The family of this 84-nucleotide RNA sequence from Pipistrellus kuhlii is "ctgf/hcs24 CAESAR". A search with the family's covariance model found it, with a score of 80 bits. The 3' UTR of human connective tissue growth factor/hypertrophic chondrocyte specific 24 (ctgf/hcs24) mRNA has been shown to repress ctgf gene expression. Reference identified a minimal RNA element, predicted to form a stable secondary structure, which acts as a post-transcriptional cis-acting element of structure-anchored repression (CAESAR), probably through direct interactions with as yet unknown nuclear factors. The source organism's lineage runs through Eukaryota, Eumetazoa, Laurasiatheria, Vespertilionidae and Pipistrellus.

RNA sequence: ACGGAGACAUGGCCUAAAAGCCAGAGAGAGUGAGAGACGUUAACUCAUGUAGCUGUAACUUGAACUGAUUUCACAUCUCAUUUU
Numbered sequence: 001a002c003g004g005a006g007a008c009a010u011g012g013c014c015u016a017a018a019a020g021c022c023a024g025a026g027a028g029a030g031u032g033a034g035a036g037a038c039g040u041u042a043a044c045u046c047a048u049g050u051a052g053c054u055g056u057a058a059c060u061u062g063a064a065c066u067g068a069u070u071u072c073a074c075a076u077c078u079c080a081u082u083u084u
Base pairs, nucleotide, nucleotide: 004079005078006077007076010023011022012021013020030074031073032072033071